[Rfam]
This 144-nucleotide RNA from Cylicocyclus nassatus belongs to the Rfam family "Nematode snoRNA ceN88".
It is annotated as an H/ACA-box small nucleolar RNA.
On this family, see Jia et al., BMC Mol Biol 2007: "Systematic identification of non-coding RNA 2,2,7-trimethylguanosine cap structures in Caenorhabditis elegans".
It scores 90 bits against the family's covariance model.
Lineage of the source: Eukaryota > Metazoa > Bilateria > Protostomia > Cylicocyclus.
RNA sequence: UUCCUUCCAUCUUGGCGCUUCUACCUCUACAGGGUAACAGUGUAUGUAGUGGAAGGUAAAUCAUGUCCCUUGGGAUAUUCGGGUCUCCUUCGGUGCUGUUCUAAUAUCUAUCGAAUAGCGUCAUCCUCUGGAUUCGAGACAGUU
Numbered sequence: 001u002u003c004c005u006u007c008c009a010u011c012u013u014g015g016c017g018c019u020u021c022u023a024c025c026u027c028u029a030c031a032g033g034g035u036a037a038c039a040g041u042g043u044a045u046g047u048a049g050u051g052g053a054a055g056g057u058a059a060a061u062c063a064u065g066u067c068c069c070u071u072g073g074g075a076u077a078u079u080c081g082g083g084u085c086u087c088c089u090u091c092g093g094u095g096c097u098g099u100u101c102u103a104a105u106a107u108c109u110a111u112c113g114a115a116u117a118g119c120g121u122c123a124u125c126c127u128c129u130g131g132a133u134u135c136g137a138g139a140c141a142g143u144u
Stems, first nucleotide, its partner, number of pairs: 003056008015043004022036005066075003078138009092122002096118006